Small nucleolar RNA SNORA5: a 137-nucleotide RNA sequence from Burhinus bistriatus. Pairs were carried over by alignment from the consensus structure, which was predicted with RNAfold. The family has 6 seed sequences and 2,226 matches in Rfam 15.1. A search with the family's covariance model found it, with a score of 72 bits. Rfam links the family to the GO terms RNA processing and nucleolus.
[Rfam]
RNA sequence: CGCAGCCUCGUCAAAUUCGGUGCCCGCCUCUGCCGUGGUGGGGACCGGCCCAAGGGCUGCCACAGCGAUGUCUGUGCUCCACAAGCCCCGUGUCCUUGGCGUGGGACAUCGGGGAUCACGACAGGUCACGGACACUC
Numbered sequence: 001c002g003c004a005g006c007c008u009c010g011u012c013a014a015a016u017u018c019g020g021u022g023c024c025c026g027c028c029u030c031u032g033c034c035g036u037g038g039u040g041g042g043g044a045c046c047g048g049c050c051c052a053a054g055g056g057c058u059g060c061c062a063c064a065g066c067g068a069u070g071u072c073u074g075u076g077c078u079c080c081a082c083a084a085g086c087c088c089c090g091u092g093u094c095c096u097u098g099g100c101g102u103g104g105g106a107c108a109u110c111g112g113g114g115a116u117c118a119c120g121a122c123a124g125g126u127c128a129c130g131g132a133c134a135c136u137c
Stems, first nucleotide, its partner, number of pairs: 002060004018047004023042006074129003078125002086114005